[Rfam]
RNA sequence: UGUUCCAUCCCCACUGUUCAAGCCUCUAAGCUGUGCCUUAGAUGGCUUUGGGGUAUGGACA
Numbered sequence: 001u002g003u004u005c006c007a008u009c010c011c012c013a014c015u016g017u018u019c020a021a022g023c024c025u026c027u028a029a030g031c032u033g034u035g036c037c038u039u040a041g042a043u044g045g046c047u048u049u050g051g052g053g054u055a056u057g058g059a060c061a
Base pairs, nucleotide, nucleotide: 001061002060003059004058005057009053010052011051012050013049020048021047022046023045024044025042026041027040028039029038030037031035
Rfam assigns this 61-nucleotide RNA sequence from Orthohepadnavirus felisdomestici to the family "HBV RNA encapsidation signal epsilon". The base pairs follow the family's consensus structure, which is taken from published work. Gene Ontology term of the family: viral genome replication. By type it is a cis-regulatory element. Lineage of the source: Viruses > Revtraviricetes > Hepadnaviridae > Orthohepadnavirus felisdomestici > Domestic cat hepatitis B virus.